The record is a 73-nucleotide RNA from Oncorhynchus tshawytscha, which matches "Small nucleolar RNA SNORD82" in Rfam. The family's RNA type in Rfam is C/D-box small nucleolar RNA. The family's consensus secondary structure was predicted with PFOLD. The source organism's lineage runs through Eukaryota, Chordata, Osteoglossocephalai, Salmoninae and Oncorhynchus. About the family: snoRNA U82 or Z25 is found in both humans and mice.

[Rfam]
RNA sequence: AAUACGCAUGAUGAACAACAAGGGACUUAAUACUGAUUCAUUUGAUGUCACCUUCAUGUUUUUCUGACGGUGU
Numbered sequence: 001a002a003u004a005c006g007c008a009u010g011a012u013g014a015a016c017a018a019c020a021a022g023g024g025a026c027u028u029a030a031u032a033c034u035g036a037u038u039c040a041u042u043u044g045a046u047g048u049c050a051c052c053u054u055c056a057u058g059u060u061u062u063u064c065u066g067a068c069g070g071u072g073u
Stems, first nucleotide, its partner, number of pairs: 002073004006068001